Description
The family of this 87-nucleotide sequence from Myotis lucifugus is "mir-9195 microRNA precursor family". The organism belongs to Myotis, within Eukaryota. It scores 97 bits against the family's covariance model.
RNA sequence: AGAGACCCUCCGUGGCCAGGGUGGAACGCUUGCCUUGUCGCCGCGGCGAUGAAGCAAGCAUUCCGCCAGGCCGCUCUCGCUGACUGC
Numbered sequence: 001a002g003a004g005a006c007c008c009u010c011c012g013u014g015g016c017c018a019g020g021g022u023g024g025a026a027c028g029c030u031u032g033c034c035u036u037g038u039c040g041c042c043g044c045g046g047c048g049a050u051g052a053a054g055c056a057a058g059c060a061u062u063c064c065g066c067c068a069g070g071c072c073g074c075u076c077u078c079g080c081u082g083a084c085u086g087c
Stems, first nucleotide, its partner, number of pairs: 004084001006082001012074006020067007028059006037050005
Annotation
The base pairs follow the family's consensus structure, which was predicted with RNAalifold.